RNA sequence: AAAAACCAAUAAUCGUGCGGAUUAUCAAACCAGGACUAUAAAACCGUGUUGCUAGUAUGCCUUUCCAUGGUGUAAAUCUAGCGUCAAGUCCAUCGGAGAGAACAUCUCGUUCAUCUUAGCGCCCUUUUGUGUCACGGAAGGUCCUUUUUGGGCCAAGAUCCGGGCACAAGGGCCGGCAGAACGUACAUUC
Numbered sequence: 001a002a003a004a005a006c007c008a009a010u011a012a013u014c015g016u017g018c019g020g021a022u023u024a025u026c027a028a029a030c031c032a033g034g035a036c037u038a039u040a041a042a043a044c045c046g047u048g049u050u051g052c053u054a055g056u057a058u059g060c061c062u063u064u065c066c067a068u069g070g071u072g073u074a075a076a077u078c079u080a081g082c083g084u085c086a087a088g089u090c091c092a093u094c095g096g097a098g099a100g101a102a103c104a105u106c107u108c109g110u111u112c113a114u115c116u117u118a119g120c121g122c123c124c125u126u127u128u129g130u131g132u133c134a135c136g137g138a139a140g141g142u143c144c145u146u147u148u149u150g151g152g153c154c155a156a157g158a159u160c161c162g163g164g165c166a167c168a169a170g171g172g173c174c175g176g177c178a179g180a181a182c183g184u185a186c187a188u189u190c
Base pairs, nucleotide, nucleotide: 009025010024011023012022013021014020030096031095033091034090035089036088051082052081053080054079055078056074057073058072059071060070061069114181116179117178121173122172123171124170125169128168129167130166131165132164133163141154143152144151145150
RNA: Small nucleolar RNA snR35
Organism: Lachancea thermotolerans